[Rfam]
RNA sequence: UUUGGCGUUGGGUUUGCGGGCAAUAAUGCCAUUACCAACCGCAUGCAGCAGGUGCGUUUUACCCAGGCCCGUGCCGCCAUA
Numbered sequence: 001u002u003u004g005g006c007g008u009u010g011g012g013u014u015u016g017c018g019g020g021c022a023a024u025a026a027u028g029c030c031a032u033u034a035c036c037a038a039c040c041g042c043a044u045g046c047a048g049c050a051g052g053u054g055c056g057u058u059u060u061a062c063c064c065a066g067g068c069c070c071g072u073g074c075c076g077c078c079a080u081a
Base pairs, nucleotide, nucleotide: 005042006041007040009038011036012035013034016032018030020029021028051078052077053076054075056074057073061072062071